Rfam assigns this 142-nucleotide RNA sequence from Rhodopseudomonas palustris to the family "flg-Rhizobiales RNA". Taxonomically the source falls in Rhodopseudomonas palustris (Bacteria, Pseudomonadati, Hyphomicrobiales, Nitrobacteraceae). The family's consensus secondary structure is taken from published work.

[Rfam]
RNA sequence: UGAAGCGCGGCUUGGGAGAGCUUUAGCGCUUCGCGGCAACCACGGACGGCCUUUGGGAGAGGGGCGUGCGCGGUUCAGACAAGGGGAGAUCGGCCGAUGGAGAAUGCACUCCUCAUCGGACUGUCGCGGCAGAUGACGUUGG
Numbered sequence: 001u002g003a004a005g006c007g008c009g010g011c012u013u014g015g016g017a018g019a020g021c022u023u024u025a026g027c028g029c030u031u032c033g034c035g036g037c038a039a040c041c042a043c044g045g046a047c048g049g050c051c052u053u054u055g056g057g058a059g060a061g062g063g064g065c066g067u068g069c070g071c072g073g074u075u076c077a078g079a080c081a082a083g084g085g086g087a088g089a090u091c092g093g094c095c096g097a098u099g100g101a102g103a104a105u106g107c108a109c110u111c112c113u114c115a116u117c118g119g120a121c122u123g124u125c126g127c128g129g130c131a132g133a134u135g136a137c138g139u140u141g142g
Stems, first nucleotide, its partner, number of pairs: 001033007009022005038075004043070002050063005094119005100114003104110001